[Rfam]
RNA sequence: GUUUUGUUUAUGAUGACUACAGAUCAAACCCGUGGCCUCUGUAAUCAGAUGUUUAAAAAC
Numbered sequence: 001g002u003u004u005u006g007u008u009u010a011u012g013a014u015g016a017c018u019a020c021a022g023a024u025c026a027a028a029c030c031c032g033u034g035g036c037c038u039c040u041g042u043a044a045u046c047a048g049a050u051g052u053u054u055a056a057a058a059a060c
Stems, first nucleotide, its partner, number of pairs: 001060005015046002018043006030035001
Rfam assigns this 60-nucleotide sequence from Clupea harengus to the family "Selenocysteine insertion sequence 1". Taxonomically the source falls in Clupea (Eukaryota, Bilateria, Euteleostomi, Actinopteri). Rfam links the family to the GO term selenocysteine incorporation. A search with the family's covariance model found it, with a score of 39 bits. For this family Rfam cites "A survey of metazoan selenocysteine insertion sequences" (Lambert et al., Biochimie, 2002).